[Rfam]
RNA: RAGATH-18 RNA
RNA sequence: ACUGUGGAGAGCAAAAAGAAUACGAGUAGAUAAUUUUUUUUAUCAAAAGUAUGUUCGAUGAAGCAGUAA
Number, nucleotide and partner (000 for none) at each position: 001a067002c066003u065004g064005u063006g000007g000008a000009g056010a055011g054012c053013a052014a000015a000016a000017a000018g000019a000020a000021u051022a050023c049024g000025a000026g000027u000028a000029g044030a043031u042032a041033a040034u000035u000036u000037u000038u000039u000040u033041u032042a031043u030044c029045a000046a000047a000048a000049g023050u022051a021052u013053g012054u011055u010056c009057g000058a000059u000060g000061a000062a000063g005064c004065a003066g002067u001068a000069a000